[Rfam]
RNA sequence: UGAUUACAGUGUCAAAAGGUCAUUCUCCCACCUGUGCUUGCACAAGGGUGGGAGAAUGACCUUGGGACACGCCCCGAUAUGAGCAUAAAAGUGGGAUGUUAAUCCCACGAUAUGCGAAUAGCGGGAAGGAUUGUGGGAGUGCAAAGCACGAAACAAUCCGUGUAAUCA
Numbered sequence: 001u002g003a004u005u006a007c008a009g010u011g012u013c014a015a016a017a018g019g020u021c022a023u024u025c026u027c028c029c030a031c032c033u034g035u036g037c038u039u040g041c042a043c044a045a046g047g048g049u050g051g052g053a054g055a056a057u058g059a060c061c062u063u064g065g066g067a068c069a070c071g072c073c074c075c076g077a078u079a080u081g082a083g084c085a086u087a088a089a090a091g092u093g094g095g096a097u098g099u100u101a102a103u104c105c106c107a108c109g110a111u112a113u114g115c116g117a118a119u120a121g122c123g124g125g126a127a128g129g130a131u132u133g134u135g136g137g138a139g140u141g142c143a144a145a146g147c148a149c150g151a152a153a154c155a156a157u158c159c160g161u162g163u164a165a166u167c168a
Base pairs, nucleotide, nucleotide: 001168002167003166004165005164006163007162010069011068012067013066017062018061019060020059021058022057023056024055025054026053027052028051029050030049031048032047033044034043035042036041073125074124075123076122078120079119080118083115084114085113086112091108092107093106094105095104096103097102128159129158130157131156132155133154134153139149140148141147142146
RNA: Clostridiales-1 RNA
Organism: Blautia sp. OF03-15BH